The record is a 150-nucleotide RNA from Erysipelatoclostridium sp. AM42-17, which matches "glmS glucosamine-6-phosphate activated ribozyme aptamer" in Rfam. Rfam classes the family as a riboswitch.
Nucleotides: 150
Base pairs, nucleotide, nucleotide: 020036021035022034023033024032025031026030045078046077047076048075049074054066055065056064057063079094080093081092082091083090098140099138100137101136102135111126112125113124114123115122116121
Number, partner (000 for none) and nucleotide at each position: 001000u002000u003000a004000a005000u006000c007000a008000a009000u010000u011000a012000a013000g014000c015000g016000c017000c018000a019000g020036g021035a022034c023033u024032a025031u026030c027000a028000a029000u030026g031025a032024u033023a034022g035021u036020u037000g038000a039000c040000g041000a042000g043000g044000g045078c046077u047076a048075g049074a050000c051000u052000u053000a054066u055065c056064g057063a058000a059000a060000g061000a062000u063057u064056c065055g066054g067000c068000g069000g070000a071000u072000g073000g074049u075048c076047u077046a078045g079094a080093g081092g082091u083090a084000u085000g086000a087000u088000a089000c090083u091082a092081c093080c094079u095000g096000a097000a098140c099138a100137a101136u102135g103000a104000a105000c106000a107000a108000a109000a110000a111126u112125a113124a114123c115122a116121a117000g118000u119000g120000a121116u122115u123114g124113u125112u126111a127000a128000a129000c130000a131000a132000a133000u134000u135102c136101a137100u138099u139000c140098g141000g142000u143000a144000u145000c146000c147000u148000c149000u150000u
Lineage of the source: Bacteria > Bacillati > Erysipelotrichales > Coprobacillaceae > Thomasclavelia. A search with the family's covariance model found it, with a score of 85 bits. Pairs were carried over by alignment from the consensus structure, which is taken from published work.